A member of the RNA family "Alphaproteobacterial sRNA BjrC1505" from Hyphomicrobium sp. MC1, 142 nucleotides long. Rfam classes the family as a small RNA. It scores 54 bits against the family's covariance model.
RNA sequence: UUUCCACUUAACUGAACCUUAAGCAUAUUGCUGCACUUUCGGUGUUAAUCCAGGUCAUCUGGAUCGUGGCGGCCCCUCUGCCGCCUCAUUUGACGCCUCCCUGUUGACUUUCGAGCCGCCCUAACGGAGCGGCUCUUUUUUU
Number, nucleotide and partner (000 for none) at each position: 001u044002u000003u042004c041005c014006a013007c000008u000009u000010a000011a000012c000013u006014g005015a038016a037017c000018c000019u000020u000021a000022a000023g034024c033025a032026u000027a000028u000029u000030g000031c000032u025033g024034c023035a000036c000037u016038u015039u000040c000041g004042g003043u000044g001045u000046u000047a000048a064049u063050c062051c061052a000053g000054g000055u000056c000057a000058u000059c000060u000061g051062g050063a049064u048065c000066g000067u000068g085069g084070c083071g082072g081073c000074c000075c000076c000077u000078c000079u000080g000081c072082c071083g070084c069085c068086u000087c000088a000089u000090u000091u000092g105093a104094c103095g102096c000097c000098u000099c000100c000101c000102u095103g094104u093105u092106g000107a000108c000109u000110u000111u000112c000113g135114a134115g133116c132117c131118g130119c129120c000121c127122u000123a000124a000125c000126g000127g121128a000129g119130c118131g117132g116133c115134u114135c113136u000137u000138u000139u000140u000141u000142u000

Annotation
The pairing is the family consensus, mapped onto this sequence.